[Rfam]
A member of the RNA family "UnaL2 LINE 3' element" from Salmo salar, 53 nucleotides long.
By type it is a cis-regulatory element.
The organism belongs to Salmo, within Eukaryota.
The base pairs follow the family's consensus structure, which is taken from published work.

RNA sequence: AAUCCACCAAUUUGUAAGUCGCUCUGAUAAGAGCAUCUGCUAAAUGACUGCUA
Numbered sequence: 001a002a003u004c005c006a007c008c009a010a011u012u013u014g015u016a017a018g019u020c021g022c023u024c025u026g027a028u029a030a031g032a033g034c035a036u037c038u039g040c041u042a043a044a045u046g047a048c049u050g051c052u053a
Stems, first nucleotide, its partner, number of pairs: 013042001014040003021034005
A search with the family's covariance model found it, with a score of 56 bits.